[Rfam]
RNA sequence: UCCCCCACAGUUCUCCGACUCACGUUUUCCGCAAGGAAUGUCUAUCGCAGGCCCCCUUCCCAUCUGGUUAACCGCAAUAUGCCGCUCUCGAACCUGUAUCAGGAUCUCGUUAUGCCGCAGCUGGAUUAUUGUGGAUGCACCGCGAUCUGUAGAGGUCGUACCAGGGCAGAAGGGUAACGCGUUUCGGAACUUAACCCUAAGAAGAUAU
Numbered sequence: 001u002c003c004c005c006c007a008c009a010g011u012u013c014u015c016c017g018a019c020u021c022a023c024g025u026u027u028u029c030c031g032c033a034a035g036g037a038a039u040g041u042c043u044a045u046c047g048c049a050g051g052c053c054c055c056c057u058u059c060c061c062a063u064c065u066g067g068u069u070a071a072c073c074g075c076a077a078u079a080u081g082c083c084g085c086u087c088u089c090g091a092a093c094c095u096g097u098a099u100c101a102g103g104a105u106c107u108c109g110u111u112a113u114g115c116c117g118c119a120g121c122u123g124g125a126u127u128a129u130u131g132u133g134g135a136u137g138c139a140c141c142g143c144g145a146u147c148u149g150u151a152g153a154g155g156u157c158g159u160a161c162c163a164g165g166g167c168a169g170a171a172g173g174g175u176a177a178c179g180c181g182u183u184u185c186g187g188a189a190c191u192u193a194a195c196c197c198u199a200a201g202a203a204g205a206u207a208u
Base pairs, nucleotide, nucleotide: 009191010190011189015187016186017185018184
Background: Shown here is a 208-nucleotide part of an RNA from Fusarium falciforme, a member of the family "Ascomycota telomerase RNA". Clan: Telomerase clan. On this family, see Qi et al., Nucleic Acids Res 2013: "The common ancestral core of vertebrate and fungal telomerase RNAs".